[Rfam]
RNA sequence: GGAUUCCGGUGUAACUGGCGACGAAGUGGAUGAAACCACGGUGGAGCAUCGGAAACAUACGGCCGGUCGCCUGGGCAAAGAGC
Dot-bracket structure: ...(((((((((..(.[[[[[....((((......))))...)..))))))))).......(((..]]]]]..))).......

The record is an 83-nucleotide RNA from Paenibacillus lemnae, which matches "ZMP/ZTP riboswitch aptamer (pfl RNA motif)" in Rfam.
A reference for the family is Jones and Ferre-D'Amare (2015), "Recognition of the bacterial alarmone ZMP through long-distance association of two RNA subdomains", Nat Struct Mol Biol.
The family's consensus secondary structure is taken from published work.
It scores 56 bits against the family's covariance model.